RNA sequence: CUGCGGGGAUGACUGCGGACCGAACUCUCUCUUUCCGAUGGCUCGGUGGGGAAAGCACGCGUUCUGAGCGGC
Number, nucleotide and partner (000 for none) at each position: 001c071002u070003g069004c068005g000006g000007g000008g000009a000010u000011g000012a000013c000014u000015g000016c000017g000018g000019a000020c000021c000022g000023a000024a000025c000026u000027c000028u000029c000030u000031c000032u000033u000034u000035c000036c000037g000038a000039u000040g000041g000042c000043u000044c000045g000046g000047u000048g000049g000050g000051g000052a000053a000054a000055g000056c000057a000058c000059g000060c000061g000062u000063u000064c000065u000066g000067a000068g004069c003070g002071g001072c000

Annotation
A member of the RNA family "Small nucleolar RNA SNORD26" from Chinchilla lanigera, 72 nucleotides long. On this family, see Tycowski et al., Proc Natl Acad Sci U S A 1996: "A small nucleolar RNA requirement for site-specific ribose methylation of rRNA in Xenopus". It is annotated as a C/D-box small nucleolar RNA. Clan: SNORD26 clan. It scores 54 bits against the family's covariance model.